[Rfam]
RNA sequence: UAAGGACGUGAAGCAUUUUGUUGGCGGAAACGCGAACAAAACUUCGAGAGGAAGCGCGUCUUACGUCGGCGAAUACACUCAUUUGGGAGUGCCUUAUAGGUAUUUGGUUCGAGACCAUUUGUAUCGUUUCUUUUUGGUGCAAGCAGAAGCCUUCCUCCGUGAUAACUGAAAGUGCCUUAAUGGUUUGCAGGGAAACUUGAACAAACCCCGCGUGUUGGCGGCAAACCAGCGCGCGGUUCAUGCGGAAGUAACGCAGCUCAGGGGCUUGCUACCCCACGAGCGAGGUGAAACCCGUGGAGUAAGGAAUCACGUAAAGAGCGGUGGGCUUAACCCACUAGGCACGGUGAAUACCGCAGCGAUGCGGUGGAUACAUUGCGAACCCAUAAUGCAAUAAAAGUUCACCACCUGGAGCGUCGAAUCU
Dot-bracket structure: ...[[[[[[((((...((((((.((......)).)))))).))))..(((((((.]]]]]].................................................................................{{......)))))))((((((..((.....[[[[[....(((((((((......)))..))))))(((((...(((..}}...)))...)))))..((((.........(((......((((.......))))....)))..........)))).....))..))))))........((((((.....))))))]]]]].(((((((((((((....)))))))[[[..((((((.........)))))).....))))))..............]]].

The family of this 421-nucleotide RNA from Corynebacterium canis is "Giant, ornate, lake- and Lactobacillales-derived (GOLLD) RNA". The family's consensus secondary structure is taken from published work. A reference for the family is Weinberg et al. (2009), "Exceptional structured noncoding RNAs revealed by bacterial metagenome analysis", Nature. The family's RNA type in Rfam is non-coding RNA gene.